This 74-nucleotide sequence from Hydrogenothermus marinus belongs to the Rfam family "tRNA". Pairs were carried over by alignment from the consensus structure, which is taken from published work. It scores 75 bits against the family's covariance model.
[Rfam]
RNA sequence: GGGCCCGUAGCUCAGUUGGUUAGAGCAGACGGCUCAUAACCGUCAGGUCGGAGGUUCGAGUCCUCCCGGGCCCA
Numbered sequence: 001g002g003g004c005c006c007g008u009a010g011c012u013c014a015g016u017u018g019g020u021u022a023g024a025g026c027a028g029a030c031g032g033c034u035c036a037u038a039a040c041c042g043u044c045a046g047g048u049c050g051g052a053g054g055u056u057c058g059a060g061u062c063c064u065c066c067c068g069g070g071c072c073c074a
Stems, first nucleotide, its partner, number of pairs: 001073007010026004028044005050066005
Dot-bracket structure: (((((((..((((.........)))).(((((.......))))).....(((((.......)))))))))))).
Rfam links the family to the GO term triplet codon-amino acid adaptor activity.